Annotation:
A member of the RNA family "c-di-AMP riboswitch aptamer (ydaO/yuaA leader)" from Bacillus sp. PK3_68, 141 nucleotides long. The pairing is the family consensus, mapped onto this sequence.
RNA sequence: UACCUAAUAUCGCUUAAUUCUUGAGGAAGUGGGGGACCCAUUUUUGUGCAUAGCACUUGGGGUGAAUCCUUCGUUAGAAGGUAGGGCUACUUUCAAGGCCCGAGUCCGACAGCUAACCCCAUCAGCGUUUUGAAAGGAGGU
Numbered sequence: 001u002a003c004c005u006a007a008u009a010u011c012g013c014u015u016a017a018u019u020c021u022u023g024a025g026g027a028a029g030u031g032g033g034g035g036a037c038c039c040a041u042u043u044u045u046g047u048g049c050a051u052a053g054c055a056c057u058u059g060g061g062g063u064g065a066a067u068c069c070u071u072c073g074u075u076a077g078a079a080g081g082u083a084g085g086g087c088u089a090c091u092u093u094c095a096a097g098g099c100c101c102g103a104g105u106c107c108g109a110c111a112g113c114u115a116a117c118c119c120c121a122u123c124a125g126c127g128u129u130u131u132g133a134a135a136g137g138a139g140g141u
Stems, first nucleotide, its partner, number of pairs: 011127004018028003029122006039059002060107003068081004084101004